[Rfam]
RNA sequence: UUUAUAAUUAUAGCGCCCGGUCUAAGCUUUAACGGUUGACUUAAGCUUAGGUGACGAGGAAAAAAGUUAUCGAAUAUUCGGCGGAUGCUUUUUCGGAAGUUAAGAGUUUCGUUAAGUAACAUACAAAUAAAACAAAAUUGUUACUAUCUCUUUAU
Numbered sequence: 001u002u003u004a005u006a007a008u009u010a011u012a013g014c015g016c017c018c019g020g021u022c023u024a025a026g027c028u029u030u031a032a033c034g035g036u037u038g039a040c041u042u043a044a045g046c047u048u049a050g051g052u053g054a055c056g057a058g059g060a061a062a063a064a065a066g067u068u069a070u071c072g073a074a075u076a077u078u079c080g081g082c083g084g085a086u087g088c089u090u091u092u093u094c095g096g097a098a099g100u101u102a103a104g105a106g107u108u109u110c111g112u113u114a115a116g117u118a119a120c121a122u123a124c125a126a127a128u129a130a131a132a133c134a135a136a137a138u139u140g141u142u143a144c145u146a147u148c149u150c151u152u153u154a155u
Stems, first nucleotide, its partner, number of pairs: 020052008029043001061093005070081004094111005115145007
Background
A member of the RNA family "glmS glucosamine-6-phosphate activated ribozyme aptamer" from Gemella sp. GH3, 155 nucleotides long. Pairs were carried over by alignment from the consensus structure, which is taken from published work. This entry contains a glucosamine-6-phosphate activated ribozyme that is found in the mRNA for GlmS. GlmS is an enzyme that uses fructose-6-phosphate and glutamine to generate glucosamine-6-phosphate. The ribozyme catalyses self cleavage of the glmS mRNA that is thought to regulate GlmS activity.